[Rfam]
RNA sequence: UAGUGGGGACCGGGUUCAGAGCCCCUCCUGGAACCCAGGGUAACUCUUAAGGUGGAGGGGAA
Numbered sequence: 001u002a003g004u005g006g007g008g009a010c011c012g013g014g015u016u017c018a019g020a021g022c023c024c025c026u027c028c029u030g031g032a033a034c035c036c037a038g039g040g041u042a043a044c045u046c047u048u049a050a051g052g053u054g055g056a057g058g059g060g061a062a
Stems, first nucleotide, its partner, number of pairs: 008041001010039001012036004016031004022060006
Rfam assigns this 62-nucleotide RNA from Suricata suricatta to the family "Gag/pol translational readthrough site". NCBI's taxonomy places the organism under Eukaryota, Mammalia, Boreoeutheria, Carnivora, Suricata. Rfam classes the family as a cis-regulatory element. Rfam links the family to the GO term viral translational readthrough. On this family, see ten Dam et al., Virus Genes 1990: "RNA pseudoknots: translational frameshifting and readthrough on viral RNAs".